[Rfam]
RNA sequence: AAAGCACAUUCAGAGAAGAGCUGACGCUCUCGCCAACCUGCCUCCGGGGCAAGGUGGUAAGCCAAGUGCGAUGUGGCCCUCAUGGGCAACCAAGCCGGUCAAG
Number, nucleotide and partner (000 for none) at each position: 001a000002a000003a000004g000005c000006a074007c073008a072009u071010u070011c000012a000013g000014a000015g031016a000017a030018g029019a028020g027021c026022u000023g000024a000025c000026g021027c020028u019029c018030u017031c015032g058033c057034c056035a000036a000037c054038c053039u052040g050041c049042c048043u000044c000045c098046g000047g096048g042049g041050c040051a000052a039053g038054g037055u000056g034057g033058u032059a000060a000061g000062c000063c000064a000065a000066g000067u000068g000069c000070g010071a009072u008073g007074u006075g000076g087077c086078c085079c084080u000081c000082a000083u000084g079085g078086g077087c076088a000089a000090c000091c000092a000093a000094g000095c000096c047097g000098g045099u000100c000101a000102a000103g000
The family of this 103-nucleotide RNA sequence from Paenacidovorax caeni is "SAM-I/IV (S-adenosyl methionine) riboswitch aptamer".
On this family, see Weinberg et al., RNA 2008: "The aptamer core of SAM-IV riboswitches mimics the ligand-binding site of SAM-I riboswitches".
The family is grouped with related families in Rfam's "SAM clan".
The source organism's lineage runs through Bacteria, Pseudomonadota, Burkholderiales, Comamonadaceae and Paenacidovorax.